RNA: Plastid-psbN 5UTR RNA
Organism: Cucumis melo
RNA sequence: UGUGACACCCAUUAAAGGUGUAGUUUCCCACCCAUGAACCACUUUACCAUAUUUUGUAUAC
Numbered sequence: 001u002g003u004g005a006c007a008c009c010c011a012u013u014a015a016a017g018g019u020g021u022a023g024u025u026u027c028c029c030a031c032c033c034a035u036g037a038a039c040c041a042c043u044u045u046a047c048c049a050u051a052u053u054u055u056g057u058a059u060a061c
Base pairs, nucleotide, nucleotide: 017045018044020042021041023039024038025037026036